[Rfam]
RNA sequence: CCCAUCGCGAGGUGGAAUCCGAAGGAAGCUGGAGACAAGGCCACGGCCCGAUGAACAGGAACCCCAUACGAGGCUGUACCGCCCGGAUGAGCUGGCACAACAAAGCGAAAUCCGGGCUACGAAGGGGCGGUAGAGUAUAUGGGGCGGGCGCGGGGUAUAGGUUAGCGAU
Dot-bracket structure: .(((((....)))))............(.((...((...(((.(((((((...........((((((.....(((.(((((((.((((..(((..........)))...))))............))))))).)))..))))))))))).)).)))....))...)).)
Source information:
This 169-nucleotide RNA from Neomoorella thermoacetica belongs to the Rfam family "Group II catalytic intron D1-D4-3". NCBI's taxonomy places the organism under Bacteria, Bacillati, Clostridia, Neomoorella, Neomoorella thermoacetica. The base pairs follow the family's consensus structure. The literature on the family includes a 2001 paper in EMBO J by Chu et al., "Control of branch-site choice by a group II intron". Rfam's curators put it in the seed alignment.